[Rfam]
RNA sequence: AAGGCCCCCCGCGGCUGACGGGCAGGUGGGCAACCACCAGGGAGCGGGGAAGCGCCUAACAUGCCGUCCGUCUGGGCAGUGCCU
Number, nucleotide and partner (000 for none) at each position: 001a000002a000003g053004g000005c000006c000007c049008c048009c047010c046011g045012c044013g000014g000015c041016u040017g072018a071019c070020g069021g068022g000023c000024a000025g000026g037027u036028g035029g034030g000031c000032a000033a000034c029035c028036a027037c026038c000039a000040g016041g015042g000043a000044g012045c011046g010047g009048g008049g007050a000051a000052g000053c003054g000055c000056c000057u000058a000059a000060c000061a000062u078063g077064c076065c075066g000067u000068c021069c020070g019071u018072c017073u000074g000075g065076g064077c063078a062079g000080u000081g000082c000083c000084u000